[Rfam]
RNA: Group II catalytic intron D1-D4-1
RNA sequence: GAACCUAUCUAGCGAUAGAUAGCUGAAUCAUCAGAAGUCAGCAGAAGCCAUAGUACCACUUGUGGGAAGGGC
Numbered sequence: 001g002a003a004c005c006u007a008u009c010u011a012g013c014g015a016u017a018g019a020u021a022g023c024u025g026a027a028u029c030a031u032c033a034g035a036a037g038u039c040a041g042c043a044g045a046a047g048c049c050a051u052a053g054u055a056c057c058a059c060u061u062g063u064g065g066g067a068a069g070g071g072c
Stems, first nucleotide, its partner, number of pairs: 002024001005022007038045002047072003056065003